[Rfam]
RNA sequence: CGAGUCGGUCAGCUUAAUUCAGAGAGUAAUCUCUGAAGCGGAGGAACCAGUUUAUUCGGGGCUUACUGUUGUGAGCUUAGUUAUUUCUAAGUAACCCAAUGGGGGGCAUCUCGCAGCCCUCGCCCGUCAGCUAACUUCGUCAGCAUUCGAGAGUUUGGCU
Dot-bracket structure: ...........(((...((((((((....))))))))((((((....(.........)(((.....((((...........................))))..((((........))))...))).........)))))).)))................
Rfam assigns this 160-nucleotide RNA from Leptolyngbya boryana to the family "c-di-AMP riboswitch aptamer (ydaO/yuaA leader)". NCBI's taxonomy places the organism under Bacteria, Bacillati, Leptolyngbyales, Leptolyngbya, Leptolyngbya boryana. A search with the family's covariance model found it, with a score of 51 bits. Rfam's curators write: This family represents a conserved RNA structure found upstream of the ydaO and yuaA genes in Bacillus subtilis and related genes in other bacteria.